[Rfam]
RNA sequence: UCGACAGCGCUGUAUUUUUGACCUAAAUUCCCCGGUAAAGGGUGAGGGGAGGCUAACCUCCCUCCUGCGUAAAUACUGUUAAUAUGCUGGGCAAGCGAUGAUUAACAGAAUCAGCAGCAUGAUGACGAGUCUCAUCAUUAUCCCUUCCUUUUA
Numbered sequence: 001u002c003g004a005c006a007g008c009g010c011u012g013u014a015u016u017u018u019u020g021a022c023c024u025a026a027a028u029u030c031c032c033c034g035g036u037a038a039a040g041g042g043u044g045a046g047g048g049g050a051g052g053c054u055a056a057c058c059u060c061c062c063u064c065c066u067g068c069g070u071a072a073a074u075a076c077u078g079u080u081a082a083u084a085u086g087c088u089g090g091g092c093a094a095g096c097g098a099u100g101a102u103u104a105a106c107a108g109a110a111u112c113a114g115c116a117g118c119a120u121g122a123u124g125a126c127g128a129g130u131c132u133c134a135u136c137a138u139u140a141u142c143c144c145u146u147c148c149u150u151u152u153a
Stems, first nucleotide, its partner, number of pairs: 034147002038145001040143004046063003065117004119138006
Dot-bracket structure: .................................((..(.((((..(((............))).((((.............................................)))).((((((........)))))).)))).)))......

The record is a 153-nucleotide RNA from Kluyvera cryocrescens, which matches "Short Intergenic Abundant RNA" in Rfam. For this family Rfam cites "Identification of novel small RNAs using comparative genomics and microarrays" (Wassarman et al., Genes Dev, 2001). Rfam classes the family as an antitoxin RNA. It scores 91 bits against the family's covariance model. About the family: This family contains multiple ncRNA from E. coli that were identified in a large scale screen of E. coli, were they were called candidates 43,55 and 61. These RNAs have also been identified by other groups and called QUAD RNAs. The organism belongs to Kluyvera, within Bacteria.